RNA sequence: ACUGGAGGACUAAUCAGGCUGGGUCUGAAGAGUGAGACUCGGAUGAUAGUAGCCUCCUAAAGGAAAGGGCUGGAGAGAGCAGUCCUGCUUGCAGAAAGCAAAGGGCUGACUGUGCCAUCCGACACCC
Number, nucleotide and partner (000 for none) at each position: 001a000002c000003u059004g057005g056006a055007g054008g053009a000010c000011u000012a000013a000014u000015c000016a000017g044018g000019c042020u000021g040022g039023g038024u037025c036026u035027g000028a000029a000030g000031a000032g000033u000034g000035a026036g025037a024038c023039u022040c021041g000042g019043a000044u017045g000046a000047u000048a000049g000050u000051a000052g000053c008054c007055u006056c005057c004058u000059a003060a000061a000062g000063g000064a000065a000066a000067g120068g119069g118070c000071u000072g000073g000074a000075g000076a000077g000078a111079g110080c108081a107082g106083u105084c104085c103086u102087g000088c000089u000090u100091g099092c098093a000094g000095a000096a000097a000098g092099c091100a090101a000102a086103g085104g084105g083106c082107u081108g080109a000110c079111u078112g000113u000114g000115c000116c000117a000118u069119c068120c067121g000122a000123c000124a000125c000126c000127c000
This 127-nucleotide RNA sequence from Tauraco erythrolophus belongs to the Rfam family "Small Cajal body specific RNA 4". For this family Rfam cites "Cajal body-specific small nuclear RNAs: a novel class of 2'-O-methylation and pseudouridylation guide RNAs" (Darzacq et al., EMBO J, 2002). It is annotated as a small Cajal body RNA. Lineage of the source: Eukaryota > Euteleostomi > Neognathae > Musophagiformes > Tauraco. Rfam links the family to the GO terms RNA processing, nucleolus and Cajal body. Rfam describes the family as follows. scaRNAs are a specific class of small nuclear RNAs which localise to the Cajal bodies and guide the modification of RNA polymerase II transcribed spliceosomal RNAs U1, U2, U4, U5 and U12. ACA26 belongs to the H/ACA box class of guide RNAs as it has the predicted hairpin-hinge-hairpin-tail structure, conserved H/ACA-box motifs and is found associated with GAR1.